About this RNA: This 71-nucleotide RNA sequence from Agrilus planipennis belongs to the Rfam family "mir-219 microRNA precursor family". Lineage of the source: Eukaryota > Hexapoda > Neoptera > Buprestidae > Agrilus.

RNA sequence: UUAGGCUGUGAUUGUCCAAACGCAAUUCUUGUAUUUUCUACCAAGGACUGUGUAUGGACAUCAUCGCUUGA
Numbered sequence: 001u002u003a004g005g006c007u008g009u010g011a012u013u014g015u016c017c018a019a020a021c022g023c024a025a026u027u028c029u030u031g032u033a034u035u036u037u038c039u040a041c042c043a044a045g046g047a048c049u050g051u052g053u054a055u056g057g058a059c060a061u062c063a064u065c066g067c068u069u070g071a
Stems, first nucleotide, its partner, number of pairs: 002070005009063004014059005021052004026047006